A member of the RNA family "Plastid-rpl16 group II-D1 intron" from Hevea brasiliensis, 45 nucleotides long. Rfam 15.1 lists 1,446 matches to the family in 693 species. Taxonomically the source falls in Hevea (Eukaryota, Streptophytina, Euphyllophyta, rosids). Rfam's curators write: Plastid-rpl16 is a non-coding RNA (ncRNA) recognised in plastids. It was recognised in and intronic region of a ribosome rpl16 gene. Pairs were carried over by alignment from the consensus structure, which was predicted with LocARNA.
RNA sequence: AAGAGUCUCGAGUCAAUAAAGACUAGAAGUUGACUCAAGAACAAA
Number, nucleotide and partner (000 for none) at each position: 001a000002a000003g000004a000005g000006u000007c039008u038009c000010g036011a035012g034013u033014c032015a031016a030017u029018a000019a000020a000021g000022a000023c000024u000025a000026g000027a000028a000029g017030u016031u015032g014033a013034c012035u011036c010037a000038a008039g007040a000041a000042c000043a000044a000045a000